[Rfam]
RNA sequence: UAAUGAAAAAGGCUAACUUAUUGAAAAAUAAGGGCGCAAAACUUCAGGUCUAAGGUGAAGAUUCGAAUUUUACUAUGAUGGCUGAGUUACCGAA
Numbered sequence: 001u002a003a004u005g006a007a008a009a010a011g012g013c014u015a016a017c018u019u020a021u022u023g024a025a026a027a028a029u030a031a032g033g034g035c036g037c038a039a040a041a042c043u044u045c046a047g048g049u050c051u052a053a054g055g056u057g058a059a060g061a062u063u064c065g066a067a068u069u070u071u072a073c074u075a076u077g078a079u080g081g082c083u084g085a086g087u088u089a090c091c092g093a094a
Base pairs, nucleotide, nucleotide: 012037013036017032018031019030020029021028022027040088041087042086043085045084046083047082048079049078050077055073056072057071058070059069060068